[Rfam]
RNA sequence: CUGCCCAUUUAAGACUAAUUGUGUUUUAAGUGGCAAACACAGAGGGGUAGACUAUUUCCUAUUUCUCUCAUAAACCUGAAGCAGAGGCUAAAUCCCUGCUUUAGAUCCUGUCGGGAGGUACAUAU
Numbered sequence: 001c002u003g004c005c006c007a008u009u010u011a012a013g014a015c016u017a018a019u020u021g022u023g024u025u026u027u028a029a030g031u032g033g034c035a036a037a038c039a040c041a042g043a044g045g046g047g048u049a050g051a052c053u054a055u056u057u058c059c060u061a062u063u064u065c066u067c068u069c070a071u072a073a074a075c076c077u078g079a080a081g082c083a084g085a086g087g088c089u090a091a092a093u094c095c096c097u098g099c100u101u102u103a104g105a106u107c108c109u110g111u112c113g114g115g116a117g118g119u120a121c122a123u124a125u
Stems, first nucleotide, its partner, number of pairs: 002049005008043003016036001019030001065117005076104007084096001086094001

The record is a 125-nucleotide sequence from Acipenser ruthenus, which matches "Small nucleolar RNA SNORA26" in Rfam. The literature on the family includes a 2001 paper in EMBO J by Huttenhofer et al., "RNomics: an experimental approach that identifies 201 candidates for novel, small, non-messenger RNAs in mouse". By type it is an H/ACA-box small nucleolar RNA. Clan: SNORA27 clan. The family's consensus secondary structure was predicted with RNAalifold. Rfam describes the family as follows. The snoRNA HBI-6 belong to the H/ACA family of snoRNAs, guiding the pseudouridylation of position U4522 if the 28S rRNA. HBI-6 is the human orthologue of mouse MBI-6 snoRNA.